[Rfam]
RNA sequence: CUUCACGAGAUGUGACCCGCAACACACCGGCAGCCUGUCGGUGUACAGCACGGCUCCGACCGGUCACGCACCAACCCCAUGUUCGCUGGGUGGUUCGGAUGACGAAGCGGCCUGCAUUUUCGCAGAACAACGAGGUUCUGAAAGGGGACUCGGUGCGGGCAAGAACAACUG
Numbered sequence: 001c002u003u004c005a006c007g008a009g010a011u012g013u014g015a016c017c018c019g020c021a022a023c024a025c026a027c028c029g030g031c032a033g034c035c036u037g038u039c040g041g042u043g044u045a046c047a048g049c050a051c052g053g054c055u056c057c058g059a060c061c062g063g064u065c066a067c068g069c070a071c072c073a074a075c076c077c078c079a080u081g082u083u084c085g086c087u088g089g090g091u092g093g094u095u096c097g098g099a100u101g102a103c104g105a106a107g108c109g110g111c112c113u114g115c116a117u118u119u120u121c122g123c124a125g126a127a128c129a130a131c132g133a134g135g136u137u138c139u140g141a142a143a144g145g146g147g148a149c150u151c152g153g154u155g156c157g158g159g160c161a162a163g164a165a166c167a168a169c170u171g
Stems, first nucleotide, its partner, number of pairs: 001107004009069001011068006070094003075090003110160008
Rfam assigns this 171-nucleotide RNA from Crystallibacter crystallopoietes to the family "SAM (S-adenosyl methionine) riboswitch aptamer".